[Rfam]
RNA sequence: UAAUGUGCACAUAUUUUCACAGGGUCUCUCAUGAGUCCCGUAGUAAAAUUUUUGGGACCUCCGUAAGGAGGUU
Numbered sequence: 001u002a003a004u005g006u007g008c009a010c011a012u013a014u015u016u017u018c019a020c021a022g023g024g025u026c027u028c029u030c031a032u033g034a035g036u037c038c039c040g041u042a043g044u045a046a047a048a049u050u051u052u053u054g055g056g057a058c059c060u061c062c063g064u065a066a067g068g069a070g071g072u073u
Stems, first nucleotide, its partner, number of pairs: 022039003026035003057072006
Dot-bracket structure: .....................(((.(((....))).))).................((((((....)))))).
RNA: SmY spliceosomal RNA
Organism: Panagrolaimus sp. PS1159